The record is a 337-nucleotide RNA from Eshraghiella crossota, which matches "Bacterial RNase P class A" in Rfam. It scores 296 bits against the family's covariance model. By type it is a ribozyme.
[Rfam]
RNA sequence: UGAGAUUACUAAAUGAUCGCGGCCGUAUUUAUACGGGUGAGGAAAGUCCGGGCUUCGUAGGGCAGGAUGCCGGAUAACGUCCGGUGGAGGCGACUCCAAGGCUAGUGCAACAGAAAUAUACCGCCAGAAAUUCUGGUAAGGGUGGAAGGGCAGUUUAAGAGACUACCGCCUUUGUGGUAACACAGAGGGCAUAUGUAAACCCCAUCCGAAGCAAGACCAAACAGAAGCGAUGACGCGGCCCGCCAGCUUCAGGUAGGUUGCUUGAACCUGUCGGUAACGACAGGUCUAGAUAGAUGAUCAUUCACGACAUAACCCGGCUUAUAGGUUUUCUCAAUUA
Numbered sequence: 001u002g003a004g005a006u007u008a009c010u011a012a013a014u015g016a017u018c019g020c021g022g023c024c025g026u027a028u029u030u031a032u033a034c035g036g037g038u039g040a041g042g043a044a045a046g047u048c049c050g051g052g053c054u055u056c057g058u059a060g061g062g063c064a065g066g067a068u069g070c071c072g073g074a075u076a077a078c079g080u081c082c083g084g085u086g087g088a089g090g091c092g093a094c095u096c097c098a099a100g101g102c103u104a105g106u107g108c109a110a111c112a113g114a115a116a117u118a119u120a121c122c123g124c125c126a127g128a129a130a131u132u133c134u135g136g137u138a139a140g141g142g143u144g145g146a147a148g149g150g151c152a153g154u155u156u157a158a159g160a161g162a163c164u165a166c167c168g169c170c171u172u173u174g175u176g177g178u179a180a181c182a183c184a185g186a187g188g189g190c191a192u193a194u195g196u197a198a199a200c201c202c203c204a205u206c207c208g209a210a211g212c213a214a215g216a217c218c219a220a221a222c223a224g225a226a227g228c229g230a231u232g233a234c235g236c237g238g239c240c241c242g243c244c245a246g247c248u249u250c251a252g253g254u255a256g257g258u259u260g261c262u263u264g265a266a267c268c269u270g271u272c273g274g275u276a277a278c279g280a281c282a283g284g285u286c287u288a289g290a291u292a293g294a295u296g297a298u299c300a301u302u303c304a305c306g307a308c309a310u311a312a313c314c315c316g317g318c319u320u321a322u323a324g325g326u327u328u329u330c331u332c333a334a335u336u337a
Stems, first nucleotide, its partner, number of pairs: 001333005008326003011322001012302007020039002023036005044320003048317005053211004060241004065207005070084005085099001086097004100202002105200002107196003121141002123137006149167002152164003168190001169188008215259004224250005235243002266285008
Dot-bracket structure: (((((..(((((((((((.((.(((((....))))).))....[[[.[[[[[((((...[[[[.((((((((((.....)))))(((((....)))).)((...(((((...........((((((((...))))))..)).......((.(((.......))).))(((((((((....)))))))).)...)))..)))))))))))))...((((.....(((((......((.]]]]))..))))).....))))......((((((((....))))))))..........)))))))..........]]]]]]]].).)))..)))))....